[Rfam]
Overview:
The record is a 108-nucleotide RNA sequence, which matches "6S-Flavo RNA" in Rfam.
RNA sequence: ACUCAACGAGCUUUAAUUAGAAGAGGUGAGUUAUAAUUGUAAAAGCAAGCUGCCUUGAGCAGAUCCUUGAUCAGUUAUGUAGCCUCAAACCUGUUUAUUUAGGAGUUU
Numbered sequence: 001a002c003u004c005a006a007c008g009a010g011c012u013u014u015a016a017u018u019a020g021a022a023g024a025g026g027u028g029a030g031u032u033a034u035a036a037u038u039g040u041a042a043a044a045g046c047a048a049g050c051u052g053c054c055u056u057g058a059g060c061a062g063a064u065c066c067u068u069g070a071u072c073a074g075u076u077a078u079g080u081a082g083c084c085u086c087a088a089a090c091c092u093g094u095u096u097a098u099u100u101a102g103g104a105g106u107u108u
Base pairs, nucleotide, nucleotide: 023086024085025084026083027082034077035076036075037074038073043068044067045066050062051061052060053059